[Rfam]
RNA sequence: UGUGUGUUGGAGGAUGAAAGUACGGAGUGAUCCAUCGGCUAAGUGUCUUGUCACAAUGCUGACACUCAAACUGCUGACAGCACACG
Numbered sequence: 001u002g003u004g005u006g007u008u009g010g011a012g013g014a015u016g017a018a019a020g021u022a023c024g025g026a027g028u029g030a031u032c033c034a035u036c037g038g039c040u041a042a043g044u045g046u047c048u049u050g051u052c053a054c055a056a057u058g059c060u061g062a063c064a065c066u067c068a069a070a071c072u073g074c075u076g077a078c079a080g081c082a083c084a085c086g
Stems, first nucleotide, its partner, number of pairs: 002085007009075002012033004017028001035062005043054003
Shown here is an 86-nucleotide RNA, a member of the family "Small nucleolar RNA SNORD71". Rfam's curators put it in the seed alignment. snoRNA HBII-239 belongs to the family of C/D snoRNAs.It is the human orthologue of the mouse MBII-239 described and is predicted to guide 2'O-ribose methylation of 5.8S rRNA on residue U14. Rfam links the family to the GO terms nucleolus and RNA processing.